[Rfam]
RNA: c-di-AMP riboswitch aptamer (ydaO/yuaA leader)
Organism: Syntrophus gentianae
RNA sequence: UAACCUUUGCUGCCUAAUCCUCGAAAUUCGAGGAGCGGGGGACCCAGUAUUCCGGGGCGCAUCGCCAAUUGGCGUAGGGCACUCUUCGGCCCGAGCCCGUCAGCUAACCUCGCAGGCAUCGUUGAGGAGACUC
Dot-bracket structure: ..........((((...((((((.....))))))((((((....(........)(((.....((((....))))..((((........))))...))).........)))))).))))...............